RNA: FMN riboswitch aptamer (RFN element)
RNA sequence: ACACGUGCUCUGGGGUCGGUGAAAUUCCGAGCCGGCGGUAACAGUCCGCGACCCGUACAUCCGCGAGGGUGUCCGGUUGAUCCGGUGUAAUUCCGGAACCGACGGUGAAAGUCCGGAUGGGAAGAUGCACGUGG
Dot-bracket structure: ..((((((((......(((.......))).[[((((((.....[[))))...((....................))....(((((.......)))))]])).(((.....]])))........)).))))))..
Numbered sequence: 001a002c003a004c005g006u007g008c009u010c011u012g013g014g015g016u017c018g019g020u021g022a023a024a025u026u027c028c029g030a031g032c033c034g035g036c037g038g039u040a041a042c043a044g045u046c047c048g049c050g051a052c053c054c055g056u057a058c059a060u061c062c063g064c065g066a067g068g069g070u071g072u073c074c075g076g077u078u079g080a081u082c083c084g085g086u087g088u089a090a091u092u093c094c095g096g097a098a099c100c101g102a103c104g105g106u107g108a109a110a111g112u113c114c115g116g117a118u119g120g121g122a123a124g125a126u127g128c129a130c131g132u133g134g
Stems, first nucleotide, its partner, number of pairs: 003132006009125002017029003031112002033101002035049004044099002053076002081097005103115003